This 72-nucleotide RNA sequence from Dryoscopus gambensis belongs to the Rfam family "mir-551 microRNA precursor family". The literature on the family includes a 2008 paper in Genome Res by Murchison et al., "Conservation of small RNA pathways in platypus". The organism belongs to Dryoscopus, within Eukaryota. A search with the family's covariance model found it, with a score of 52 bits.
RNA sequence: CACCCUUGGAAAUCAAGUGUUGGUGGAGCCUGUGGGGUGAUUUGAGGCGACCCAUACUUGGUUUCAGGGAUC
Numbered sequence: 001c002a003c004c005c006u007u008g009g010a011a012a013u014c015a016a017g018u019g020u021u022g023g024u025g026g027a028g029c030c031u032g033u034g035g036g037g038u039g040a041u042u043u044g045a046g047g048c049g050a051c052c053c054a055u056a057c058u059u060g061g062u063u064u065c066a067g068g069g070a071u072c
Stems, first nucleotide, its partner, number of pairs: 002071001004069004009065006016058002022052003028048004